[Rfam]
RNA sequence: UCGGCCAUGGUAUAGCUGGUUAGAACAUAAGACUCUCACUCUUAAGACCCGGGUUCGAGUCCCGGUGGCCGAG
Numbered sequence: 001u002c003g004g005c006c007a008u009g010g011u012a013u014a015g016c017u018g019g020u021u022a023g024a025a026c027a028u029a030a031g032a033c034u035c036u037c038a039c040u041c042u043u044a045a046g047a048c049c050c051g052g053g054u055u056c057g058a059g060u061c062c063c064g065g066u067g068g069c070c071g072a073g
Base pairs, nucleotide, nucleotide: 001072002071003070004069005068006067007066010026011025013023028044029043030042031041032040049065050064051063052062053061
Rfam assigns this 73-nucleotide sequence from Carpediemonas membranifera to the family "tRNA". Rfam links the family to the GO term triplet codon-amino acid adaptor activity. Rfam's curators write: Transfer RNA (tRNA) molecules are approximately 80 nucleotides in length. It scores 61 bits against the family's covariance model. Lineage of the source: Eukaryota > Metamonada > Fornicata > Carpediemonas-like organisms > Carpediemonas. The family's RNA type in Rfam is transfer RNA.